[Rfam]
RNA sequence: AAUGCCUAUGUUGCCUCCCCGAAUCUGGUAACAGAAAGGGGGUGUUUGCAAAUGGAAGCUCUUAUAUCUUUUAUUAUUGCUGUCGCGGCAGGUGUGAUUAGCCAUCUCAUCUGCAAAUGGUUGGACAACAAUAAAAAGUAGGCAACCAGCCUAUGGUCUAAGCCGCCAAAAAAUGGAAUAGAAAACCCCAGUGCUGCAACACUGGGGUUUUCGUUUGUGUUUGCAA
Numbered sequence: 001a002a003u004g005c006c007u008a009u010g011u012u013g014c015c016u017c018c019c020c021g022a023a024u025c026u027g028g029u030a031a032c033a034g035a036a037a038g039g040g041g042g043u044g045u046u047u048g049c050a051a052a053u054g055g056a057a058g059c060u061c062u063u064a065u066a067u068c069u070u071u072u073a074u075u076a077u078u079g080c081u082g083u084c085g086c087g088g089c090a091g092g093u094g095u096g097a098u099u100a101g102c103c104a105u106c107u108c109a110u111c112u113g114c115a116a117a118u119g120g121u122u123g124g125a126c127a128a129c130a131a132u133a134a135a136a137a138g139u140a141g142g143c144a145a146c147c148a149g150c151c152u153a154u155g156g157u158c159u160a161a162g163c164c165g166c167c168a169a170a171a172a173a174u175g176g177a178a179u180a181g182a183a184a185a186c187c188c189c190a191g192u193g194c195u196g197c198a199a200c201a202c203u204g205g206g207g208u209u210u211u212c213g214u215u216u217g218u219g220u221u222u223g224c225a226a
Base pairs, nucleotide, nucleotide: 005039006038009035010032011031014028015027041167042166043165044164054072055071056070057069058067089113090112091111093109094108096106097105098104119151120150121149122148123147124146129142132140133139170222171221173220174219177215178214182211183210184209185208186207187206188205189204190203191202192201193200